[Rfam]
The record is a 125-nucleotide RNA from Desulfotruncus arcticus, which matches "FMN riboswitch aptamer (RFN element)" in Rfam.
RNA sequence: AUGAGCCUUCAGGGACAGGUGAAAUUCCGUACCGGCGGUAAGGUGAUCCGAGCCCGCGAGCCCUAAGGGGUUGAUCCGGUGUGAUUCCGGAGCCGACAGUAUAGUCUGGAUGGGAGAAGGUGGAU
Numbered sequence: 001a002u003g004a005g006c007c008u009u010c011a012g013g014g015a016c017a018g019g020u021g022a023a024a025u026u027c028c029g030u031a032c033c034g035g036c037g038g039u040a041a042g043g044u045g046a047u048c049c050g051a052g053c054c055c056g057c058g059a060g061c062c063c064u065a066a067g068g069g070g071u072u073g074a075u076c077c078g079g080u081g082u083g084a085u086u087c088c089g090g091a092g093c094c095g096a097c098a099g100u101a102u103a104g105u106c107u108g109g110a111u112g113g114g115a116g117a118a119g120g121u122g123g124a125u
Base pairs, nucleotide, nucleotide: 005121006120007119008118009117010116018028019027031105032104033095034094035057036056037055038054052093053092060071061070062069075091076090077089078088079087097108098107099106